A member of the RNA family "Small nucleolar RNA R12" from Kalanchoe fedtschenkoi, 77 nucleotides long. It scores 68 bits against the family's covariance model. snoR12 is a C/D box small nucleolar RNA, which acts as a methylation guide for 25S ribosomal RNA in plants. snoR12 has been alternatively named snoZ44 in Arabidopsis and snoZ131 in rice. Taxonomically the source falls in Kalanchoe (Eukaryota, Viridiplantae, Mesangiospermae, Crassulaceae). Rfam classes the family as a C/D-box small nucleolar RNA.
[Rfam]
RNA sequence: GUGUUGGGUGACGAAAAAAAUCGUUCGGAUUCCCAAUGAUUCACCGUGAUCUUUACAACCAGCUACUUCCGACACAC
Numbered sequence: 001g002u003g004u005u006g007g008g009u010g011a012c013g014a015a016a017a018a019a020a021u022c023g024u025u026c027g028g029a030u031u032c033c034c035a036a037u038g039a040u041u042c043a044c045c046g047u048g049a050u051c052u053u054u055a056c057a058a059c060c061a062g063c064u065a066c067u068u069c070c071g072a073c074a075c076a077c
Stems, first nucleotide, its partner, number of pairs: 001077004006073001
For this family Rfam cites "The high diversity of snoRNAs in plants: identification and comparative study of 120 snoRNA genes from Oryza sativa" (Chen et al., Nucleic Acids Res, 2003).